[Rfam]
The record is a 224-nucleotide RNA sequence from Chania multitudinisentens, which matches "GlmZ RNA activator of glmS mRNA" in Rfam. The match comes from Rfam's covariance-model search (61 bits). For this family Rfam cites "The small RNA GlmY acts upstream of the sRNA GlmZ in the activation of glmS expression and is subject to regulation by polyadenylation in Escherichia coli" (Reichenbach et al., Nucleic Acids Res, 2008). About the family: This RNA was discovered in E. coli during a large scale screen. The sraJ gene was expressed in early logarithmic phase, but its level decreased with cell growth. Clan: Glm clan. Rfam classes the family as a small RNA.

RNA sequence: CCAGUUGCUCAUUCAACUUUUUAUGAUGGCCCCGUAUUUAGACGGAAUCUCUGCCUCAUAAGCCUCCGAAUGAUGCCAAAGAAAUGGUGCCUAUCGUCCAACCAAACCGAUAACAGACGCGUAAGCGGCUUUAUCAAGCAUCGGACGACACGUUGAGUGAGGCACCGCCUUGUAUCCAACUGUGAUGAAGUAUUCAUCAAUUCCGGAUACUUACGGAUGCUAUU
Numbered sequence: 001c002c003a004g005u006u007g008c009u010c011a012u013u014c015a016a017c018u019u020u021u022u023a024u025g026a027u028g029g030c031c032c033c034g035u036a037u038u039u040a041g042a043c044g045g046a047a048u049c050u051c052u053g054c055c056u057c058a059u060a061a062g063c064c065u066c067c068g069a070a071u072g073a074u075g076c077c078a079a080a081g082a083a084a085u086g087g088u089g090c091c092u093a094u095c096g097u098c099c100a101a102c103c104a105a106a107c108c109g110a111u112a113a114c115a116g117a118c119g120c121g122u123a124a125g126c127g128g129c130u131u132u133a134u135c136a137a138g139c140a141u142c143g144g145a146c147g148a149c150a151c152g153u154u155g156a157g158u159g160a161g162g163c164a165c166c167g168c169c170u171u172g173u174a175u176c177c178a179a180c181u182g183u184g185a186u187g188a189a190g191u192a193u194u195c196a197u198c199a200a201u202u203c204c205g206g207a208u209a210c211u212u213a214c215g216g217a218u219g220c221u222a223u224u
Stems, first nucleotide, its partner, number of pairs: 001081001007076002009073004019060001027053001029051001086166007096146004109135004175184001177182001196221001198219002202217004